The family of this 227-nucleotide RNA sequence from Pontibacillus chungwhensis is "T-box leader".
Uncharged tRNA acts as the effector for transcription antitermination of genes in the T-box leader family.
On this family, see Grundy et al., RNA 2000: "tRNA determinants for transcription antitermination of the Bacillus subtilis tyrS gene".
Pairs were carried over by alignment from the consensus structure, which is taken from published work.
RNA sequence: AUAUCAGUGAUGAUGAGGAUAAGAAUGAGUUGCAUCGGCUUACGCAGAGAGGGAAGUCAUAGGCUGGAAGCUUCCUGAGUACGACACUUGUUUACCACCUCUGAACUCUGUUUACGAACCAUUCAGUAGUAAACAGCGACUCGUCCUCGUUACGGAUGUGCUAAUGAAGCCGCAGUUAUGACUGUGGGAAUUUGGGUGGAACCACGGGUAUAACGCUCGUCCCUUCG
Numbered sequence: 001a002u003a004u005c006a007g008u009g010a011u012g013a014u015g016a017g018g019a020u021a022a023g024a025a026u027g028a029g030u031u032g033c034a035u036c037g038g039c040u041u042a043c044g045c046a047g048a049g050a051g052g053g054a055a056g057u058c059a060u061a062g063g064c065u066g067g068a069a070g071c072u073u074c075c076u077g078a079g080u081a082c083g084a085c086a087c088u089u090g091u092u093u094a095c096c097a098c099c100u101c102u103g104a105a106c107u108c109u110g111u112u113u114a115c116g117a118a119c120c121a122u123u124c125a126g127u128a129g130u131a132a133a134c135a136g137c138g139a140c141u142c143g144u145c146c147u148c149g150u151u152a153c154g155g156a157u158g159u160g161c162u163a164a165u166g167a168a169g170c171c172g173c174a175g176u177u178a179u180g181a182c183u184g185u186g187g188g189a190a191u192u193u194g195g196g197u198g199g200a201a202c203c204a205c206g207g208g209u210a211u212a213a214c215g216c217u218c219g220u221c222c223c224u225u226c227g
Stems, first nucleotide, its partner, number of pairs: 007106002015101004027089004040078003052075006109135007137149003170187007194223003204220005